[Rfam]
RNA sequence: CGGCCAUCGAGACCGGCGGAGGGACAGGCCCUUUGAUGCCGGGGCAGCCUGCGGACGCGCGCAGCGGACGUGAGGUGCCAAAUCCUGCGGGGACUGCGGUCCGCCGAGAGAUGGUUC
Numbered sequence: 001c002g003g004c005c006a007u008c009g010a011g012a013c014c015g016g017c018g019g020a021g022g023g024a025c026a027g028g029c030c031c032u033u034u035g036a037u038g039c040c041g042g043g044g045c046a047g048c049c050u051g052c053g054g055a056c057g058c059g060c061g062c063a064g065c066g067g068a069c070g071u072g073a074g075g076u077g078c079c080a081a082a083u084c085c086u087g088c089g090g091g092g093a094c095u096g097c098g099g100u101c102c103g104c105c106g107a108g109a110g111a112u113g114g115u116u117c
Base pairs, nucleotide, nucleotide: 002116003115004114005113006112007111008110013042014041015040016039017038021031022030023029025087026086027085028084043079044078045077046076048075049074050072051071052070053069083109088106089105090104092102
This 117-nucleotide sequence from Pseudoxanthomonas taiwanensis belongs to the Rfam family "SAM riboswitch aptamer (S box leader)". The SAM riboswitch is found upstream of a number of genes which code for proteins involved in methionine or cysteine biosynthesis in Gram-positive bacteria. The source organism's lineage runs through Bacteria, Pseudomonadati, Gammaproteobacteria, Lysobacterales and Pseudoxanthomonas.